[Rfam]
RNA: mir-9229 microRNA precursor family
Organism: Cnephaeus nilssonii
RNA sequence: GAGAUACCACUAUGGAGCAGGACUUGCUUCAGUAAGACUUUGGUGCUCUCUGAGUCUGCCCCUUGAGUGUGUCGCU
Number, nucleotide and partner (000 for none) at each position: 001g075002a000003g073004a072005u071006a070007c069008c000009a000010c000011u065012a064013u000014g062015g061016a000017g059018c058019a057020g000021g056022a055023c054024u000025u000026g000027c000028u000029u053030c052031a051032g050033u000034a000035a047036g046037a044038c043039u000040u000041u000042g000043g038044u037045g000046c036047u035048c000049u000050c032051u031052g030053a029054g023055u022056c021057u019058g018059c017060c000061c015062c014063u000064u012065g011066a000067g000068u000069g007070u006071g005072u004073c003074g000075c001076u000